[Rfam]
RNA sequence: UCCUCCGUGAGGAGGAAUCUGAAGGAAGUCGGACGCAAAUUCUCGAACUGACGAACAGAAACUAUAUAGAAGGCUGAAUCAAGGUGGAUGAGUUAGCAAUGCAUAACGAAGUCCAAUACUGCCCGAACCUUGUACAGUAAAUAUAGCAGUUACAUGAGAAGAAGGUUAUCGUC
Numbered sequence: 001u002c003c004u005c006c007g008u009g010a011g012g013a014g015g016a017a018u019c020u021g022a023a024g025g026a027a028g029u030c031g032g033a034c035g036c037a038a039a040u041u042c043u044c045g046a047a048c049u050g051a052c053g054a055a056c057a058g059a060a061a062c063u064a065u066a067u068a069g070a071a072g073g074c075u076g077a078a079u080c081a082a083g084g085u086g087g088a089u090g091a092g093u094u095a096g097c098a099a100u101g102c103a104u105a106a107c108g109a110a111g112u113c114c115a116a117u118a119c120u121g122c123c124c125g126a127a128c129c130u131u132g133u134a135c136a137g138u139a140a141a142u143a144u145a146g147c148a149g150u151u152a153c154a155u156g157a158g159a160a161g162a163a164g165g166u167u168a169u170c171g172u173c
Stems, first nucleotide, its partner, number of pairs: 001016006028173001030171003035166002040160006046151005062146006073138003080132005086114004092107004

The family of this 173-nucleotide RNA from Tetzosporium hominis is "Group II catalytic intron D1-D4-3". Pairs were carried over by alignment from the consensus structure. NCBI's taxonomy places the organism under Bacteria, Bacillati, Bacillota, Bacilli, Tetzosporium.